[Rfam]
RNA sequence: UAUCUUCUUAUGCUUUUGAUCCAACUCGGUGCAGAAGGCUUUACAACCUGCCGAGGCGCGAUGGAAUUCUUAGUGAGCAUCCCGAGGGAUACCUUGGGAGAGGAGCUGUUGUAUAUCAGCGAUGGUAUACAGGGAGGCGGAAACCGCCAACAGAAAAGUCGCGGCACCGUGUGAUAGCGAGAUAAAAGUUACUGGACUCGCGGGGCGGGCAAUAGACGCUCCAGUGGAGAAUAAUCCUGUAUGCCUUGUCCGUGGCUGGAUGAUGACACAGCAGGAAAGCCACUAACCGCCUGAGAGUUGAUGCCCGGAAACGGGAUAUAACGCGAGAAACAGGUGCGAGUAGCCAAAGCUCUCGGUGAAGAACCGGUCUGUAUCAACCGCUAGAUACUCAAGCUGAAGUUUGGUGAAAGUUAUGGGUAUCAAUCCCAUGUGGUCACGGCGAAAGCGGUGUGAAAAUGUUAGGGGUCGCUCCCCGAAGCACAGCGUCACAUCACCACUGAACGAACAUUAUCGAUGAUCAUGCGGCAUCCCGAAGGGGAGGAUGAAAGGCAUAAGCGGG
Numbered sequence: 001u002a003u004c005u006u007c008u009u010a011u012g013c014u015u016u017u018g019a020u021c022c023a024a025c026u027c028g029g030u031g032c033a034g035a036a037g038g039c040u041u042u043a044c045a046a047c048c049u050g051c052c053g054a055g056g057c058g059c060g061a062u063g064g065a066a067u068u069c070u071u072a073g074u075g076a077g078c079a080u081c082c083c084g085a086g087g088g089a090u091a092c093c094u095u096g097g098g099a100g101a102g103g104a105g106c107u108g109u110u111g112u113a114u115a116u117c118a119g120c121g122a123u124g125g126u127a128u129a130c131a132g133g134g135a136g137g138c139g140g141a142a143a144c145c146g147c148c149a150a151c152a153g154a155a156a157a158g159u160c161g162c163g164g165c166a167c168c169g170u171g172u173g174a175u176a177g178c179g180a181g182a183u184a185a186a187a188g189u190u191a192c193u194g195g196a197c198u199c200g201c202g203g204g205g206c207g208g209g210c211a212a213u214a215g216a217c218g219c220u221c222c223a224g225u226g227g228a229g230a231a232u233a234a235u236c237c238u239g240u241a242u243g244c245c246u247u248g249u250c251c252g253u254g255g256c257u258g259g260a261u262g263a264u265g266a267c268a269c270a271g272c273a274g275g276a277a278a279g280c281c282a283c284u285a286a287c288c289g290c291c292u293g294a295g296a297g298u299u300g301a302u303g304c305c306c307g308g309a310a311a312c313g314g315g316a317u318a319u320a321a322c323g324c325g326a327g328a329a330a331c332a333g334g335u336g337c338g339a340g341u342a343g344c345c346a347a348a349g350c351u352c353u354c355g356g357u358g359a360a361g362a363a364c365c366g367g368u369c370u371g372u373a374u375c376a377a378c379c380g381c382u383a384g385a386u387a388c389u390c391a392a393g394c395u396g397a398a399g400u401u402u403g404g405u406g407a408a409a410g411u412u413a414u415g416g417g418u419a420u421c422a423a424u425c426c427c428a429u430g431u432g433g434u435c436a437c438g439g440c441g442a443a444a445g446c447g448g449u450g451u452g453a454a455a456a457u458g459u460u461a462g463g464g465g466u467c468g469c470u471c472c473c474c475g476a477a478g479c480a481c482a483g484c485g486u487c488a489c490a491u492c493a494c495c496a497c498u499g500a501a502c503g504a505a506c507a508u509u510a511u512c513g514a515u516g517a518u519c520a521u522g523c524g525g526c527a528u529c530c531c532g533a534a535g536g537g538g539a540g541g542a543u544g545a546a547a548g549g550c551a552u553a554a555g556c557g558g559g
Base pairs, nucleotide, nucleotide: 008555009554014549015548016547017546022541025055026054027053028052029051036049037048038047040045057163058162059161060160061159062158072107073106074105080099081098082097083096084095085094086093087092109132110131111130112129113128114127115126116125117124118123136148137147138146139145140144185509188508190501192333193332194331197327198326199325200324201323202322203292204291205290206289207288208287219229220228221227222226235276236275237274238273239272240271244265246263247262249260250259251258253282254281255280256279293354294353295352296351297350304315305314306313307312337410343405344404345403346402347401348400393484394483395482396481416427417426431496432495433494448492454486457485460477462474463473464472465471528539529538530537531536

This 559-nucleotide RNA sequence belongs to the Rfam family "ROOL RNA". The family's consensus secondary structure is taken from published work.